[Rfam]
The record is a 155-nucleotide RNA from Granulicatella elegans, which matches "M-box riboswitch aptamer (ykoK leader)" in Rfam. Rfam describes the family as follows. M-box riboswitch, also know as ykoK leader is described as a metaloregulatory RNA that sense divalent metals and function as a genetic control element of genes related to divalent metal transport in bacteria. It was first reported upstream of the B.subtilis ykoK gene and genes with related functions in other bacteria. On this family, see Barrick et al., Proc Natl Acad Sci U S A 2004: "New RNA motifs suggest an expanded scope for riboswitches in bacterial genetic control".
RNA sequence: UAUGUAAAUCGGUAGGUGAGACUACCAUGGAGAUACGGAUGGCUACCGCAAAGUAGUGGAGACACUAUUCGCUGGUUAGCAGUUCCUGUCGUGAAGGCAGAAACUAAUGUCAUUUCAUUGCUCCAUGAUGUUAAAGCUUGGACGGGAAUCAAAAU
Numbered sequence: 001u002a003u004g005u006a007a008a009u010c011g012g013u014a015g016g017u018g019a020g021a022c023u024a025c026c027a028u029g030g031a032g033a034u035a036c037g038g039a040u041g042g043c044u045a046c047c048g049c050a051a052a053g054u055a056g057u058g059g060a061g062a063c064a065c066u067a068u069u070c071g072c073u074g075g076u077u078a079g080c081a082g083u084u085c086c087u088g089u090c091g092u093g094a095a096g097g098c099a100g101a102a103a104c105u106a107a108u109g110u111c112a113u114u115u116c117a118u119u120g121c122u123c124c125a126u127g128a129u130g131u132u133a134a135a136g137c138u139u140g141g142a143c144g145g146g147a148a149u150c151a152a153a154a155u
Stems, first nucleotide, its partner, number of pairs: 005151001007149001009147002011143001013095001015138003020132003026127007039113005046074001048072002055066004082104003088098003